The record is a 68-nucleotide RNA from Ascaris suum, which matches "mir-239 microRNA precursor family" in Rfam. A reference for the family is Ruby et al. (2006), "Large-scale sequencing reveals 21U-RNAs and additional microRNAs and endogenous siRNAs in C. elegans", Cell. Rfam links the family to the GO terms RISC complex and miRNA-mediated post-transcriptional gene silencing. The organism belongs to Ascaris, within Eukaryota.
[Rfam]
RNA sequence: UGAACUUUGUACUUCGGCUAAGGUGCUGCUCUAUGGCGGCCAGUACCUUGGCUAGGUGCAACGCUGAA
Numbered sequence: 001u002g003a004a005c006u007u008u009g010u011a012c013u014u015c016g017g018c019u020a021a022g023g024u025g026c027u028g029c030u031c032u033a034u035g036g037c038g039g040c041c042a043g044u045a046c047c048u049u050g051g052c053u054a055g056g057u058g059c060a061a062c063g064c065u066g067a068a
Base pairs, nucleotide, nucleotide: 003065005063007061008060009059010058011057012056016052018051019050020049021048022047023046024045026043027042028041029039030038
Dot-bracket structure: ..(.(.((((((...(.(((((((.(((((.......)).))).))))))))...)))))).).)...